[Rfam]
RNA sequence: AAUCUUUGAGGUGAAAAGCGCGUCUUCAUACGCCGCGUGCAUAUGCAACGGGCAAAAGAGAUGUUGGGAGUGACGCUCCAGCCAAUGAUU
Numbered sequence: 001a002a003u004c005u006u007u008g009a010g011g012u013g014a015a016a017a018g019c020g021c022g023u024c025u026u027c028a029u030a031c032g033c034c035g036c037g038u039g040c041a042u043a044u045g046c047a048a049c050g051g052g053c054a055a056a057a058g059a060g061a062u063g064u065u066g067g068g069a070g071u072g073a074c075g076c077u078c079c080a081g082c083c084a085a086u087g088a089u090u
Stems, first nucleotide, its partner, number of pairs: 001090004006085003011029005023072001031058001033051003063082005
The record is a 90-nucleotide RNA sequence from Lachnospiraceae bacterium MD329, which matches "skipping-rope RNA" in Rfam. Taxonomically the source falls in Lachnospiraceae (Bacteria, Bacillota, Clostridia, Lachnospirales). Rfam classes the family as a small RNA.